[Rfam]
RNA sequence: UAGGCACCUCGUUCGGUGAGGCGUCUGCGCGGACACAGGCCACUGACCCCACUCGUCGAGAGACGUCCCGGGUCAGGACAGGUCUUCCCGGCUUAAGGGUUGACUCCAGGUGGCUUCCCUCCCAGGGAUCACGCCGCGCAGUGCCGAAGCUCUUACGUGAGGGGUGCGAA
Numbered sequence: 001u002a003g004g005c006a007c008c009u010c011g012u013u014c015g016g017u018g019a020g021g022c023g024u025c026u027g028c029g030c031g032g033a034c035a036c037a038g039g040c041c042a043c044u045g046a047c048c049c050c051a052c053u054c055g056u057c058g059a060g061a062g063a064c065g066u067c068c069c070g071g072g073u074c075a076g077g078a079c080a081g082g083u084c085u086u087c088c089c090g091g092c093u094u095a096a097g098g099g100u101u102g103a104c105u106c107c108a109g110g111u112g113g114c115u116u117c118c119c120u121c122c123c124a125g126g127g128a129u130c131a132c133g134c135c136g137c138g139c140a141g142u143g144c145c146g147a148a149g150c151u152c153u154u155a156c157g158u159g160a161g162g163g164g165u166g167c168g169a170a
Stems, first nucleotide, its partner, number of pairs: 005166006011156002013096001015151003020145003025141008039114005045074005054065004081105004087099003116128003
M-box riboswitch aptamer (ykoK leader): a 170-nucleotide RNA from Microbispora rosea. Its family is annotated with response to magnesium ion and regulation of gene expression in the Gene Ontology. The organism belongs to Microbispora rosea, within Bacteria.